[Rfam]
RNA sequence: AAGACUGUACUUUCGGGGAUCAUUUCUAUAGUUCGUCACUAGAGAAGUUUCUCUGAAUGUGUAGAAUACCCUAAACCAUGAGGAGGAGGUGCAGUGUUCUCUCCUGAGCAAUACCUCUUCUGGUAUUGCUUUUAGAACUGCCAAUAGCCAUUGAUGAUUGUUCUUCUCUUCCUUCAGAAGAGUAAGAGGGGGAGAACACAGUCUGAGUGGU
Numbered sequence: 001a002a003g004a005c006u007g008u009a010c011u012u013u014c015g016g017g018g019a020u021c022a023u024u025u026c027u028a029u030a031g032u033u034c035g036u037c038a039c040u041a042g043a044g045a046a047g048u049u050u051c052u053c054u055g056a057a058u059g060u061g062u063a064g065a066a067u068a069c070c071c072u073a074a075a076c077c078a079u080g081a082g083g084a085g086g087a088g089g090u091g092c093a094g095u096g097u098u099c100u101c102u103c104c105u106g107a108g109c110a111a112u113a114c115c116u117c118u119u120c121u122g123g124u125a126u127u128g129c130u131u132u133u134a135g136a137a138c139u140g141c142c143a144a145u146a147g148c149c150a151u152u153g154a155u156g157a158u159u160g161u162u163c164u165u166c167u168c169u170u171c172c173u174u175c176a177g178a179a180g181a182g183u184a185a186g187a188g189g190g191g192g193a194g195a196a197c198a199c200a201g202u203c204u205g206a207g208u209g210g211u
Stems, first nucleotide, its partner, number of pairs: 002040002006035002009032003015027004049065002054061001075211005094199012108161003117147002121143004126137002129135001164185002166182006
Shown here is a 211-nucleotide RNA from Carollia perspicillata, a member of the family "Small nucleolar RNA U3".
By type it is a C/D-box small nucleolar RNA.
Pairs were carried over by alignment from the consensus structure, which is taken from published work.
Clan: U3 clan.
From the family's description: Small nucleolar RNAs (snoRNAs) are involved in the processing and modification of rRNA in the nucleolus. There are two main classes of snoRNAs: the box C/D class, and the box H/ACA class.
For this family Rfam cites "The uRNA database" (Zwieb, Nucleic Acids Res, 1997).